[Rfam]
RNA: Small nucleolar RNA R32/R81/Z41
RNA sequence: AGAUGGACAUGAUGAAAGAAAUAAUAAUAGAUGCCUGAUUAUCAAAUGCUAUGUGUUUGAUAUGAUUGAUCAAAUUAUCGCUACGUUCUUUCUGAUUCAGUU
Number, nucleotide and partner (000 for none) at each position: 001a000002g000003a000004u099005g098006g097007a096008c000009a000010u000011g000012a000013u000014g000015a000016a000017a000018g000019a000020a000021a000022u000023a000024a000025u000026a000027a000028u000029a000030g000031a000032u000033g000034c000035c000036u000037g000038a000039u000040u000041a000042u000043c000044a000045a000046a000047u000048g000049c000050u000051a000052u000053g000054u000055g000056u000057u000058u000059g000060a000061u000062a000063u000064g000065a000066u000067u000068g000069a000070u000071c000072a000073a000074a000075u000076u000077a000078u000079c000080g000081c000082u000083a000084c000085g000086u000087u000088c000089u000090u000091u000092c000093u000094g000095a000096u007097u006098c005099a004100g000101u000102u000